[Rfam]
RNA sequence: UCUAGCGCCUUGCCCGUGACUCCCAGCCGAUCUCACGCCCUGCCACACUUCCCCGGUGGCAGGUCGGACCGGAUGGGGAUCAGGGGUCAGGGGCCGGAACAC
Numbered sequence: 001u002c003u004a005g006c007g008c009c010u011u012g013c014c015c016g017u018g019a020c021u022c023c024c025a026g027c028c029g030a031u032c033u034c035a036c037g038c039c040c041u042g043c044c045a046c047a048c049u050u051c052c053c054c055g056g057u058g059g060c061a062g063g064u065c066g067g068a069c070c071g072g073a074u075g076g077g078g079a080u081c082a083g084g085g086g087u088c089a090g091g092g093g094c095c096g097g098a099a100c101a102c
Base pairs, nucleotide, nucleotide: 010089012087013086014085015084018081019080021078022077023076024075025074027072028071029070031068032067036066037065039063040062041061042060043059044058045057046056
Annotation: The record is a 102-nucleotide RNA from Lacisediminihabitans profunda, which matches "mraW RNA" in Rfam. The base pairs follow the family's consensus structure, which is taken from published work. Taxonomically the source falls in Lacisediminihabitans (Bacteria, Bacillati, Actinomycetota, Micrococcales).